The family of this 76-nucleotide RNA sequence from Polioptila caerulea is "Small nucleolar RNA SNORD69". It scores 52 bits against the family's covariance model. The pairing is the family consensus, mapped onto this sequence. Rfam's curators write: snoRNA HBII-210 belongs to the C/D family of snoRNAs. It is the human orthologue of the mouse MBII-210 and is predicted to guide the 2'O-ribose methylation of large 28S rRNA on residue G4464. The organism belongs to Polioptila, within Eukaryota.
[Rfam]
RNA sequence: CACACAAAGCACAUGAUGACAAAACACUGAAACUGACUGUAUGAAGUACCUUCAAUCCAACCCUGAGCUUUGUGCC
Numbered sequence: 001c002a003c004a005c006a007a008a009g010c011a012c013a014u015g016a017u018g019a020c021a022a023a024a025c026a027c028u029g030a031a032a033c034u035g036a037c038u039g040u041a042u043g044a045a046g047u048a049c050c051u052u053c054a055a056u057c058c059a060a061c062c063c064u065g066a067g068c069u070u071u072g073u074g075c076c
Stems, first nucleotide, its partner, number of pairs: 003074008